About this RNA: Shown here is a 55-nucleotide sequence, a member of the family "Glutamine riboswitch aptamer (glnA leader)". Rfam's curators put it in the seed alignment. The family's consensus secondary structure is taken from published work.
RNA sequence: CACGUUCAAUCUACAUUUGUAGAUCGGAAGUAAGCUUAUGCUGAAGGAACGCGGU
Numbered sequence: 001c002a003c004g005u006u007c008a009a010u011c012u013a014c015a016u017u018u019g020u021a022g023a024u025c026g027g028a029a030g031u032a033a034g035c036u037u038a039u040g041c042u043g044a045a046g047g048a049a050c051g052c053g054g055u
Stems, first nucleotide, its partner, number of pairs: 003051005009024005027052001033042003